Rfam assigns this 104-nucleotide RNA sequence from Paenibacillus solani to the family "TPP riboswitch aptamer (THI element)". The family's consensus secondary structure is taken from published work. The match comes from Rfam's covariance-model search (61 bits).

RNA sequence: UGGCUGUACUAGGGGUGCCUUGUGCUGAGAGACGGCGUGCCGCCGUUAACCCUUAACCACCCGAUCUAGGUCAUACUAGCGUGGGGAAGUGUAGCAUUUAUGUU
Numbered sequence: 001u002g003g004c005u006g007u008a009c010u011a012g013g014g015g016u017g018c019c020u021u022g023u024g025c026u027g028a029g030a031g032a033c034g035g036c037g038u039g040c041c042g043c044c045g046u047u048a049a050c051c052c053u054u055a056a057c058c059a060c061c062c063g064a065u066c067u068a069g070g071u072c073a074u075a076c077u078a079g080c081g082u083g084g085g086g087a088a089g090u091g092u093a094g095c096a097u098u099u100a101u102g103u104u
Base pairs, nucleotide, nucleotide: 006092007091008090009089010088011053012052013051014050017025018024032046033045034044035043036042060085061084062083063082066079067078068077069076